[Rfam]
RNA sequence: AAGGAGCAAUAAACCCUCUUGAUAAAACAAGAAAGAGUUUAUUGCUCCUUUAUUU
Numbered sequence: 001a002a003g004g005a006g007c008a009a010u011a012a013a014c015c016c017u018c019u020u021g022a023u024a025a026a027a028c029a030a031g032a033a034a035g036a037g038u039u040u041a042u043u044g045c046u047c048c049u050u051u052a053u054u055u
Stems, first nucleotide, its partner, number of pairs: 001050011012038001017032005
Dot-bracket structure: ((((((((((((....(((((......))))).....).))))))))))).....
Plastid-psbA-3 3UTR RNA: a 55-nucleotide sequence from Caryopteris mongholica. Pairs were carried over by alignment from the consensus structure, which was predicted with LocARNA. Rfam's curators put it in the seed alignment. The source organism's lineage runs through Eukaryota, Magnoliopsida, Lamiales, Lamiaceae and Caryopteris. For this family Rfam cites "Retrograde signaling in plants: A critical review focusing on the GUN pathway and beyond" (Richter et al., Plant Commun, 2023). Rfam describes the family as follows. Plastid psbA-3 is a non-coding RNA (ncRNA) present in plastids. It was identified in inverted repeat sequences in the 3 prime untranslate region (3UTR) of photosystem II quinone-binding protein (psbA).